This 85-nucleotide RNA sequence from Castor canadensis belongs to the Rfam family "Small nucleolar RNA SNORD66". About the family: snoRNA HBII-142 is part of the C/D family of snoRNAs. It is the human orthologue of the mouse MBII-142 snoRNA and is predicted to guide 2'O-ribose methylation of small 18S rRNA at residue C1272. A search with the family's covariance model found it, with a score of 35 bits. Lineage of the source: Eukaryota > Chordata > Teleostomi > Castoridae > Castor. Rfam 15.1 lists 1,346 matches to the family in 614 species.
RNA sequence: CUCCUAUGAUGAUUGGUUUUAUGUGUCAACUUGACUGGGCCACAGGGUGCCAAUGUAGUUGGACAAACAUUUUCAUGUUUGGGAG
Numbered sequence: 001c002u003c004c005u006a007u008g009a010u011g012a013u014u015g016g017u018u019u020u021a022u023g024u025g026u027c028a029a030c031u032u033g034a035c036u037g038g039g040c041c042a043c044a045g046g047g048u049g050c051c052a053a054u055g056u057a058g059u060u061g062g063a064c065a066a067a068c069a070u071u072u073u074c075a076u077g078u079u080u081g082g083g084a085g
Stems, first nucleotide, its partner, number of pairs: 001085006